[Rfam]
RNA sequence: GUGAGGCGCACCUAGGGUUCCGCCGGUUCGCGGGUCUGGUCCGAGAGGUGCAGGCGGCCUGUGCCGGCCGCUCCACGGCGGGACAAAAGCCCGGGAGGU
Dot-bracket structure: .......(((((..((...((((((.....)))..).)).))....))))).(((((((......))))))).(.[...(((.......))).)..]..